[Rfam]
Rfam assigns this 447-nucleotide RNA sequence from Chaetops frenatus to the family "Vertebrate telomerase RNA". Lineage of the source: Eukaryota > Archosauria > Dinosauria > Neognathae > Chaetops. Rfam describes the family as follows. Telomerase is a ribonucleoprotein reverse transcriptase that synthesises telomeric DNA. Telomerase RNAs differ greatly in sequence and structure between vertebrates, ciliates and yeasts, but they share a 5' pseudoknot structure close to the template sequence. Vertebrate telomerase RNAs have a 3' H/ACA snoRNA-like domain. Pairs were carried over by alignment from the consensus structure, which is taken from published work. Its family is annotated with telomerase activity, telomerase catalytic core complex and telomere maintenance via telomerase in the Gene Ontology. The family is grouped with related families in Rfam's "Telomerase clan". It scores 148 bits against the family's covariance model. It is annotated as a non-coding RNA gene.

RNA sequence: CCGUGCCGGGGUGGGCAGACCCUGCAUCCAACUAACCCUAAUGGCGGCUGCGCCCCUCUCGCCCGCCCGCUGUUUUACUCGCUGACUUUCAGCGGGCAAAGGGAGCGGCCCUGGGAAGGGGGGGAGGGAGAGAGUUCCGGCCUCAAAAAAAGCCAGCGAUGGGGAUGCCCACCCCGGCCCACCCUGGGGGCCCUGUCCCUCCCCCGCAGCGGGGAUGCUCCCGCCCUCGCCCUUCGUGGAGGCCGCGGUCGGCAGGCUCAGCGCCAGUACCGCCGCGAAGAGUUCGUCUCUGUCAGCCUUGGCGGCGGCCGGGACCGUAGGGCCGGCCCGCCCAACCUGGGCAGCCGGGGGACCCCAGCAGAACAAAACGGGCGCGGCGCCUUCGGGCGCUGAGCAGCCGCGGCUCCCUCAGACGUGGGGUGCGCGGCCGGCGCCGCCCCGACAACC
Numbered sequence: 001c002c003g004u005g006c007c008g009g010g011g012u013g014g015g016c017a018g019a020c021c022c023u024g025c026a027u028c029c030a031a032c033u034a035a036c037c038c039u040a041a042u043g044g045c046g047g048c049u050g051c052g053c054c055c056c057u058c059u060c061g062c063c064c065g066c067c068c069g070c071u072g073u074u075u076u077a078c079u080c081g082c083u084g085a086c087u088u089u090c091a092g093c094g095g096g097c098a099a100a101g102g103g104a105g106c107g108g109c110c111c112u113g114g115g116a117a118g119g120g121g122g123g124g125a126g127g128g129a130g131a132g133a134g135u136u137c138c139g140g141c142c143u144c145a146a147a148a149a150a151a152g153c154c155a156g157c158g159a160u161g162g163g164g165a166u167g168c169c170c171a172c173c174c175c176g177g178c179c180c181a182c183c184c185u186g187g188g189g190g191c192c193c194u195g196u197c198c199c200u201c202c203c204c205c206g207c208a209g210c211g212g213g214g215a216u217g218c219u220c221c222c223g224c225c226c227u228c229g230c231c232c233u234u235c236g237u238g239g240a241g242g243c244c245g246c247g248g249u250c251g252g253c254a255g256g257c258u259c260a261g262c263g264c265c266a267g268u269a270c271c272g273c274c275g276c277g278a279a280g281a282g283u284u285c286g287u288c289u290c291u292g293u294c295a296g297c298c299u300u301g302g303c304g305g306c307g308g309c310c311g312g313g314a315c316c317g318u319a320g321g322g323c324c325g326g327c328c329c330g331c332c333c334a335a336c337c338u339g340g341g342c343a344g345c346c347g348g349g350g351g352a353c354c355c356c357a358g359c360a361g362a363a364c365a366a367a368a369c370g371g372g373c374g375c376g377g378c379g380c381c382u383u384c385g386g387g388c389g390c391u392g393a394g395c396a397g398c399c400g401c402g403g404c405u406c407c408c409u410c411a412g413a414c415g416u417g418g419g420g421u422g423c424g425c426g427g428c429c430g431g432c433g434c435c436g437c438c439c440c441g442a443c444a445a446c447c
Stems, first nucleotide, its partner, number of pairs: 005178013020164004052106002055103002065097008081157004086152001087150003184358006211329003214323001216321001219314005225308001228304004244277005250272003255265003279291004370439004376435006398427005405420004